[Rfam]
RNA sequence: GGAAGGGCGACCAACCGUCUGAAAGAAGCCUAAGUGCAAACCUGCGAGCUGACGAACAGAAAUCGCAUAUAAGGCCGAACCCCUGGGUGAGUGAGCACAACAUCACGAAACCCGCCUGGAGAACAUGGGGGAUGGUAAAUGCGGCAGUUGUGCAGGGAAAGAUCAUGUU
Numbered sequence: 001g002g003a004a005g006g007g008c009g010a011c012c013a014a015c016c017g018u019c020u021g022a023a024a025g026a027a028g029c030c031u032a033a034g035u036g037c038a039a040a041c042c043u044g045c046g047a048g049c050u051g052a053c054g055a056a057c058a059g060a061a062a063u064c065g066c067a068u069a070u071a072a073g074g075c076c077g078a079a080c081c082c083c084u085g086g087g088u089g090a091g092u093g094a095g096c097a098c099a100a101c102a103u104c105a106c107g108a109a110a111c112c113c114g115c116c117u118g119g120a121g122a123a124c125a126u127g128g129g130g131g132a133u134g135g136u137a138a139a140u141g142c143g144g145c146a147g148u149u150g151u152g153c154a155g156g157g158a159a160a161g162a163u164c165a166u167g168u169u
Base pairs, nucleotide, nucleotide: 001016002015005012006011028169030167037161041156042155043154044153045152046151047149048148049147050146051145063144064143065142066141067140068139074136075135076134080130081129082128083127085113086112087111088110091106092105093104094103